[Rfam]
Nucleotides: 084
Stems, first nucleotide, its partner, number of pairs: 006078004015069007025059006033053003
Number, partner (000 for none) and nucleotide at each position: 001000u002000g003000g004000c005000a006078g007077u008076a009075g010000a011000g012000g013000a014000g015069g016068g017067g018066g019065c020064c021063g022000u023000u024000a025059c026058a027057c028056u029055g030054u031000c032000a033053g034052a035051g036000a037000u038000g039000u040000a041000c042000u043000c044000u045000g046000a047000g048000g049000g050000u051035c052034u053033c054030a055029c056028a057027g058026u059025g060000a061000a062000c063021c064020g065019g066018u067017c068016u069015c070000u071000u072000u073000u074000c075009c076008u077007g078006c079000u080000g081000c082000u083000u084000c